Fluoride riboswitch aptamer (crcB RNA motif): a 70-nucleotide sequence.
Gene Ontology terms of the family: response to fluoride and positive regulation of gene expression.
Rfam's curators put it in the seed alignment.

RNA sequence: UGUAACAAUGGUGAUGAGGUCCACCCUGAUAAUUGUCAAAACCGCUUAUGCUGAUGACUUCUACACAACU
Numbered sequence: 001u002g003u004a005a006c007a008a009u010g011g012u013g014a015u016g017a018g019g020u021c022c023a024c025c026c027u028g029a030u031a032a033u034u035g036u037c038a039a040a041a042c043c044g045c046u047u048a049u050g051c052u053g054a055u056g057a058c059u060u061c062u063a064c065a066c067a068a069c070u
Stems, first nucleotide, its partner, number of pairs: 010025004016061006044051002